[Rfam]
RNA sequence: UCUCAUUUAAACGAUACAAUCCCUAACCUCUAUUGUAUCCUUGUAACUCUGAAGUUACGCCAGGUUUGAAUAAAUUUCUUCAAAACAAG
Numbered sequence: 001u002c003u004c005a006u007u008u009a010a011a012c013g014a015u016a017c018a019a020u021c022c023c024u025a026a027c028c029u030c031u032a033u034u035g036u037a038u039c040c041u042u043g044u045a046a047c048u049c050u051g052a053a054g055u056u057a058c059g060c061c062a063g064g065u066u067u068g069a070a071u072a073a074a075u076u077u078c079u080u081c082a083a084a085a086c087a088a089g
Base pairs, nucleotide, nucleotide: 036068037067040063041062042059043058044057045056046055047054048053
Shown here is an 89-nucleotide sequence from Enterococcus casseliflavus, a member of the family "BsrC". It scores 57 bits against the family's covariance model. The base pairs follow the family's consensus structure, which was predicted with CMfinder. Rfam classes the family as a small RNA. The family has 29 seed sequences and 572 matches in Rfam 15.1. On this family, see Saito et al., Gene 2008: "Novel small RNA-encoding genes in the intergenic regions of Bacillus subtilis". The organism belongs to Enterococcus casseliflavus, within Bacteria.